[Rfam]
RNA sequence: CCCGGUCCUCGGUAGUGGCCCUCAGAUCUCGACAGGCUCGACCACAAGCCACCGCUCGUCCGCGAGCAGACGCCCGUCGCCGGGCGCACGAUCUGCGGGCCUCGAUCGAAGACCGGC
Number, nucleotide and partner (000 for none) at each position: 001c000002c116003c115004g114005g113006u112007c111008c000009u109010c108011g107012g106013u105014a000015g000016u000017g101018g100019c099020c098021c097022u000023c095024a094025g093026a092027u091028c090029u000030c000031g000032a000033c000034a000035g000036g000037c000038u000039c000040g000041a000042c000043c000044a000045c000046a000047a000048g000049c000050c000051a000052c000053c000054g000055c000056u000057c000058g000059u000060c000061c000062g000063c000064g000065a000066g000067c000068a000069g000070a000071c000072g000073c000074c000075c000076g000077u000078c000079g000080c000081c000082g000083g000084g000085c000086g000087c000088a000089c000090g028091a027092u026093c025094u024095g023096c000097g021098g020099g019100c018101c017102u000103c000104g000105a013106u012107c011108g010109a009110a000111g007112a006113c005114c004115g003116g002117c000

Actino-pnp RNA: a 117-nucleotide RNA from Nocardioides luti. Taxonomically the source falls in Nocardioides (Bacteria, Bacillati, Propionibacteriales, Nocardioidaceae). The match comes from Rfam's covariance-model search (55 bits). Pairs were carried over by alignment from the consensus structure, which is taken from published work. The family's RNA type in Rfam is cis-regulatory element.